Guanidine-II riboswitch aptamer (mini-ykkC): a 42-nucleotide sequence from Tigriopus californicus. Lineage of the source: Eukaryota > Panarthropoda > Arthropoda > Harpacticidae > Tigriopus. A reference for the family is Weinberg et al. (2007), "Identification of 22 candidate structured RNAs in bacteria using the CMfinder comparative genomics pipeline", Nucleic Acids Res. It scores 34 bits against the family's covariance model. Rfam describes the family as follows. Simpler in structure and has fewer highly conserved nucleotide positions than the ykkC-yxkD leader. Despite this each of its two stem-loop structures directly bind free guanidine.
RNA sequence: UCUUGGGGACGGCCCCGUGAUCCCUGUGUUGGGGACGGCCCC
Numbered sequence: 001u002c003u004u005g006g007g008g009a010c011g012g013c014c015c016c017g018u019g020a021u022c023c024c025u026g027u028g029u030u031g032g033g034g035a036c037g038g039c040c041c042c
Stems, first nucleotide, its partner, number of pairs: 001020002004017005031042004